[Rfam]
RNA sequence: ACUGGGAGUUGUGGCGUGCUCCUGUAAUCCAGCUACUUGGAGGUCGGGUCUCGAGGAUGGUUUGAGUCCGGGAACCACUGUGGUUGGGUGUUUCUACGUUGACCAGGCGUCCGCACUAAGCUGAUCAUCAACAUGGUUGUUUCCGGGGAGCCGGAAAUGUCCAGGUUGCUAAGGAGGGGCGAACCGGGCCAGGGGGGAAACUCAGCAGCCAAAAGUCCCCGUGGUUUGCAGUAGUGGGAUCGCGCCAGUGAGUAGGGCCCCAGUUGCAGCCCGGACAAUACAAUCGGACCGAGAUCUGU
Numbered sequence: 001a002c003u004g005g006g007a008g009u010u011g012u013g014g015c016g017u018g019c020u021c022c023u024g025u026a027a028u029c030c031a032g033c034u035a036c037u038u039g040g041a042g043g044u045c046g047g048g049u050c051u052c053g054a055g056g057a058u059g060g061u062u063u064g065a066g067u068c069c070g071g072g073a074a075c076c077a078c079u080g081u082g083g084u085u086g087g088g089u090g091u092u093u094c095u096a097c098g099u100u101g102a103c104c105a106g107g108c109g110u111c112c113g114c115a116c117u118a119a120g121c122u123g124a125u126c127a128u129c130a131a132c133a134u135g136g137u138u139g140u141u142u143c144c145g146g147g148g149a150g151c152c153g154g155a156a157a158u159g160u161c162c163a164g165g166u167u168g169c170u171a172a173g174g175a176g177g178g179g180c181g182a183a184c185c186g187g188g189c190c191a192g193g194g195g196g197g198a199a200a201c202u203c204a205g206c207a208g209c210c211a212a213a214a215g216u217c218c219c220c221g222u223g224g225u226u227u228g229c230a231g232u233a234g235u236g237g238g239a240u241c242g243c244g245c246c247a248g249u250g251a252g253u254a255g256g257g258c259c260c261c262a263g264u265u266g267c268a269g270c271c272c273g274g275a276c277a278a279u280a281c282a283a284u285c286g287g288a289c290c291g292a293g294a295u296c297u298g299u
Base pairs, nucleotide, nucleotide: 001044002043003042004023005022006021007020008019009018028041029040030039046297047296048295049294050293051292052291053290058286059285060284061283062282066276067275068274069273070272071271072270078269079268080267081266082265083264084263085262087261088260090258091257093256094255095254096253097252099250104248106246107245108244109243110242111238112237114236115235116234117233118232120229121228123226124225125224126223127222128221129168130167131166132165134163135162136161138159139158140157141156142155143154144153145152146151169173176219177218178217179216180215187210188209189208194203195202196201

This 299-nucleotide RNA sequence from Cimex lectularius belongs to the Rfam family "Metazoan signal recognition particle RNA". The match comes from Rfam's covariance-model search (253 bits). From the family's description: The signal recognition particle (SRP) is a universally conserved ribonucleoprotein. Clan: SRP clan.